[Rfam]
The family of this 77-nucleotide RNA sequence from Alligator mississippiensis is "Mammalian CPEB3 ribozyme".
It scores 56 bits against the family's covariance model.
RNA sequence: UCAGCUGUCUUAAUGGCCAUAGCAGAAGCGCUCCCGUCGUGGCCUUGUCAGAUUGUAACGAAUCUGUGAAUUUUGCU
Numbered sequence: 001u002c003a004g005c006u007g008u009c010u011u012a013a014u015g016g017c018c019a020u021a022g023c024a025g026a027a028g029c030g031c032u033c034c035c036g037u038c039g040u041g042g043c044c045u046u047g048u049c050a051g052a053u054u055g056u057a058a059c060g061a062a063u064c065u066g067u068g069a070a071u072u073u074u075g076c077u
Stems, first nucleotide, its partner, number of pairs: 013045001015044004021077007028040003049066006